This 73-nucleotide RNA sequence from Xenopus laevis belongs to the Rfam family "mir-10 microRNA precursor family". The family's consensus secondary structure was predicted with PFOLD. The family has 36 seed sequences and 3,853 matches in Rfam 15.1.
RNA sequence: CUAUAUGUACCCUGUAGAACCGAAUUUGUGUGGUUUUAACAGUCACAGAUUCGAUUCUAGGGGGAUAUAUGGU
Numbered sequence: 001c002u003a004u005a006u007g008u009a010c011c012c013u014g015u016a017g018a019a020c021c022g023a024a025u026u027u028g029u030g031u032g033g034u035u036u037u038a039a040c041a042g043u044c045a046c047a048g049a050u051u052c053g054a055u056u057c058u059a060g061g062g063g064g065a066u067a068u069a070u071g072g073u
Base pairs, nucleotide, nucleotide: 002071003070004069005068006067007066010063011062012061016058017057018056019055021053022052023051024050025049026048027047028046029045030044
Dot-bracket structure: .((((((..(((...((((.((((((((((.............)))))))))).))))..)))..))))))..

The literature on the family includes a 2001 paper in Science by Lee and Ambros, "An extensive class of small RNAs in Caenorhabditis elegans".